[Rfam]
RNA sequence: UUUCCCAGAGUCCUCAUUGUGCAUGCUGUGUGUGUUUCUGAUCAGUCCACACAGUGUCUGCAAUGUGGACGCUGAGAUG
Numbered sequence: 001u002u003u004c005c006c007a008g009a010g011u012c013c014u015c016a017u018u019g020u021g022c023a024u025g026c027u028g029u030g031u032g033u034g035u036u037u038c039u040g041a042u043c044a045g046u047c048c049a050c051a052c053a054g055u056g057u058c059u060g061c062a063a064u065g066u067g068g069a070c071g072c073u074g075a076g077a078u079g
Stems, first nucleotide, its partner, number of pairs: 012068002015065007024056001026054006
mir-460 microRNA precursor family: a 79-nucleotide RNA from Oncorhynchus tshawytscha. The family's consensus secondary structure was predicted with RNAalifold. The source organism's lineage runs through Eukaryota, Chordata, Gnathostomata, Actinopteri and Oncorhynchus. The match comes from Rfam's covariance-model search (62 bits). The family has 21 seed sequences and 1,029 matches in Rfam 15.1.